Rfam assigns this 345-nucleotide sequence from Clostridium paridis to the family "Bacterial RNase P class A". From the family's description: Ribonuclease P (RNase P) is a ubiquitous endoribonuclease, found in archaea, bacteria and eukarya as well as chloroplasts and mitochondria. Its best characterised activity is the generation of mature 5'-ends of tRNAs by cleaving the 5'-leader elements of precursor-tRNAs. Cellular RNase Ps are ribonucleoproteins. RNA from bacterial RNase Ps retains its catalytic activity in the absence of the protein subunit, i.e. it is a ribozyme. It is annotated as a ribozyme. The family's consensus secondary structure is taken from published work. Its family is annotated with tRNA processing, ribonuclease P activity and dimeric ribonuclease P complex in the Gene Ontology.

RNA sequence: CGAGUAAGCCAGACAAUCGCUGCUAGUUUUAACUAGGAGAGGAAAGUCCGAGCUCCGUAGGGCAGGGUGCUGGUUAAUUGCCAGUGGAGGUGACUCUAAGGAAAGUGCAACAGAGAUAUACCGCCUAGUUUUUUGCUAGGUAAGGAUGGAAAGGUGAGGUAAGAGCUCACCAGCAUAUAGGUGACUAUAUGGCUAUGUAAACCCCACCUGGAGCAAGACCGAAUAGAGAGGCAUAUGGGAUUGCCCGUCCCGCCUCUGGGUGUGUCGCUUGAGCUUAUUGGUAACAAUAGGCCUAGAUAGAUGAUUGUCAAAUACAGAACUCGGCUUAUAGACUUAUCUCGCCUU
Numbered sequence: 001c002g003a004g005u006a007a008g009c010c011a012g013a014c015a016a017u018c019g020c021u022g023c024u025a026g027u028u029u030u031a032a033c034u035a036g037g038a039g040a041g042g043a044a045a046g047u048c049c050g051a052g053c054u055c056c057g058u059a060g061g062g063c064a065g066g067g068u069g070c071u072g073g074u075u076a077a078u079u080g081c082c083a084g085u086g087g088a089g090g091u092g093a094c095u096c097u098a099a100g101g102a103a104a105g106u107g108c109a110a111c112a113g114a115g116a117u118a119u120a121c122c123g124c125c126u127a128g129u130u131u132u133u134u135g136c137u138a139g140g141u142a143a144g145g146a147u148g149g150a151a152a153g154g155u156g157a158g159g160u161a162a163g164a165g166c167u168c169a170c171c172a173g174c175a176u177a178u179a180g181g182u183g184a185c186u187a188u189a190u191g192g193c194u195a196u197g198u199a200a201a202c203c204c205c206a207c208c209u210g211g212a213g214c215a216a217g218a219c220c221g222a223a224u225a226g227a228g229a230g231g232c233a234u235a236u237g238g239g240a241u242u243g244c245c246c247g248u249c250c251c252g253c254c255u256c257u258g259g260g261u262g263u264g265u266c267g268c269u270u271g272a273g274c275u276u277a278u279u280g281g282u283a284a285c286a287a288u289a290g291g292c293c294u295a296g297a298u299a300g301a302u303g304a305u306u307g308u309c310a311a312a313u314a315c316a317g318a319a320c321u322c323g324g325c326u327u328a329u330a331g332a333c334u335u336a337u338c339u340c341g342c343c344u345u
Stems, first nucleotide, its partner, number of pairs: 001341004005336004010331001011329001012309007020039002023036005044327003048324005053213004060246004065209005070084005085099001086097004100204002105202002107198003121145002123141007153171006173193001174191007217266003227257006237251005273292008